RNA sequence: AAUCACGAGUUCCGGUGCGAAGCCCUGGCUGGCCGGACUGCAACCCUCUCGCUGUAGUGGGGUGCACCAGGUGAUGAUUCGGCCGGCCCGCAGCGGUGACCGGCAAGUGCAGCCG
Number, nucleotide and partner (000 for none) at each position: 001a079002a078003u077004c076005a000006c000007g000008a000009g038010u000011u037012c036013c035014g034015g033016u032017g000018c000019g000020a000021a030022g029023c000024c000025c000026u000027g000028g000029c022030u021031g000032g016033c015034c014035g013036g012037a011038c009039u066040g065041c064042a000043a000044c062045c061046c060047u000048c057049u056050c000051g000052c000053u000054g000055u000056a049057g048058u000059g000060g046061g045062g044063u000064g041065c040066a039067c000068c000069a000070g000071g000072u000073g000074a000075u000076g004077a003078u002079u001080c000081g000082g104083c103084c102085g101086g100087c000088c098089c000090g000091c095092a000093g000094c000095g091096g000097u000098g088099a000100c086101c085102g084103g083104c082105a000106a000107g000108u000109g000110c000111a000112g000113c000114c000115g000